A member of the RNA family "TPP riboswitch aptamer (THI element)" from Planomicrobium sp. CPCC 101110, 103 nucleotides long. Vitamin B(1) in its active form thiamin pyrophosphate (TPP) is an essential coenzyme that is synthesised by coupling of pyrimidine and thiazole moieties in bacteria. The organism belongs to Planomicrobium, within Bacteria. The family's consensus secondary structure is taken from published work.

RNA sequence: GAAAUCCGCUAGGGGUGCCGCAAUGGCUGAGAUAAGGAGUUUCCUUUGUCCCUUUGAACCUGAUCUGGUUAGCACCAGCGUAGGAAAGUGGAGCCGGUCCAAU
Numbered sequence: 001g002a003a004a005u006c007c008g009c010u011a012g013g014g015g016u017g018c019c020g021c022a023a024u025g026g027c028u029g030a031g032a033u034a035a036g037g038a039g040u041u042u043c044c045u046u047u048g049u050c051c052c053u054u055u056g057a058a059c060c061u062g063a064u065c066u067g068g069u070u071a072g073c074a075c076c077a078g079c080g081u082a083g084g085a086a087a088g089u090g091g092a093g094c095c096g097g098u099c100c101a102a103u
Stems, first nucleotide, its partner, number of pairs: 006091005011053004017027004034046005059084004065078004